[Rfam]
Annotation: The record is a 67-nucleotide sequence from Cairina moschata, which matches "Small nucleolar RNA SNORD42" in Rfam. The family's RNA type in Rfam is C/D-box small nucleolar RNA.
RNA sequence: UAUCUUAAUAUGGAAAAAAUAAUAAUCUGUUGAAAAAAAAAAAUCAGCAUAGGAACCUCAGAAGACA
Dot-bracket structure: (.(((.........................................................))).)
Lineage of the source: Eukaryota > Craniata > Sauropsida > Theropoda > Cairina. The match comes from Rfam's covariance-model search (40 bits). Its family is annotated with nucleolus and RNA processing in the Gene Ontology. snoRNA U42 is found in intron 3 of the ribosomal protein L23a (RPL23a) gene in humans and is also present in mice.